[Rfam]
RNA sequence: UUGUUUCAAACGCUGAGUUCUGCACUGCCGCAGAAACGGGGGAACCAUCGACGGCUCUCUGUCGUUGUCCAAUGGACGAUGGCAGGGAGCGUCACGGGGUGAAUCGCAAGGGCACGAUAAGUGCCAAGCGUAGGGCGUCUCUCGCGCCCGAAUCCGACAGCUAACCUCGCAAGCGUCAACGGGAGAGGCC
Numbered sequence: 001u002u003g004u005u006u007c008a009a010a011c012g013c014u015g016a017g018u019u020c021u022g023c024a025c026u027g028c029c030g031c032a033g034a035a036a037c038g039g040g041g042g043a044a045c046c047a048u049c050g051a052c053g054g055c056u057c058u059c060u061g062u063c064g065u066u067g068u069c070c071a072a073u074g075g076a077c078g079a080u081g082g083c084a085g086g087g088a089g090c091g092u093c094a095c096g097g098g099g100u101g102a103a104u105c106g107c108a109a110g111g112g113c114a115c116g117a118u119a120a121g122u123g124c125c126a127a128g129c130g131u132a133g134g135g136c137g138u139c140u141c142u143c144g145c146g147c148c149c150g151a152a153u154c155c156g157a158c159a160g161c162u163a164a165c166c167u168c169g170c171a172a173g174c175g176u177c178a179a180c181g182g183g184a185g186a187g188g189c190c
Stems, first nucleotide, its partner, number of pairs: 011175004018035006037169005046096001097155003105130003133149004
RNA: c-di-AMP riboswitch aptamer (ydaO/yuaA leader)
Organism: Paenibacillus sp. Leaf72